[Rfam]
RNA: Streptococcus sRNA SpF19
Organism: Streptococcus suis
Nucleotides: 099
Stems, first nucleotide, its partner, number of pairs: 001097007017030005033090014049074001050072005055065003
Number, partner (000 for none) and nucleotide at each position: 001097g002096a003095a004094a005093u006092a007091a008000a009000a010000g011000a012000u013000g014000u015000u016000a017030u018029c019028g020027c021026u022000u023000u024000a025000a026021g027020g028019c029018g030017a031000g032000c033090a034089g035088g036087a037086a038085c039084c040083u041082a042081u043080u044079u045078a046077a047000a048000u049074g050072a051071a052070u053069c054068g055065a056064u057063a058000c059000g060000a061000u062000a063057u064056a065055u066000g067000u068054c069053g070052a071051u072050u073000u074049c075000u076000u077046u078045u079044a080043a081042g082041u083040a084039g085038g086037u087036u088035c089034u090033u091007u092006u093005a094004u095003u096002u097001u098000a099000a